[Rfam]
Nucleotides: 109
Stems, first nucleotide, its partner, number of pairs: 001109008013043005021032003026080004044072004049068002052064003076101001081098006
Number, partner (000 for none) and nucleotide at each position: 001109u002108u003107c004106u005105u006104a007103u008102c009000a010000u011000g012000a013043g014042a015041g016040a017039u018000g019000g020000a021032g022031g023030g024000a025000u026080u027079u028078g029077g030023c031022c032021c033000u034000g035000u036000g037000a038000a039017g040016u041015c042014u043013c044072a045071g046070c047069a048000a049068c050067c051000a052064g053063c054062c055000g056000a057000u058000g059000u060000u061000a062054g063053g064052c065000a066000u067050g068049g069047u070046g071045c072044u073000a074000a075000u076101u077029c078028c079027a080026a081098u082097a083096g084095g085094u086093u087000u088000a089000c090000u091000a092000a093086a094085a095084c096083c097082u098081a099000a100000a101076a102008g103007a104006u105005a106004a107003g108002a109001a
The record is a 109-nucleotide sequence from Aquibacillus salsiterrae, which matches "SAM riboswitch aptamer (S box leader)" in Rfam.
The match comes from Rfam's covariance-model search (95 bits).
Its Rfam clan is "SAM clan".
Rfam describes the family as follows. The SAM riboswitch is found upstream of a number of genes which code for proteins involved in methionine or cysteine biosynthesis in Gram-positive bacteria.
Taxonomically the source falls in Aquibacillus (Bacteria, Bacillota, Bacilli, Bacillaceae).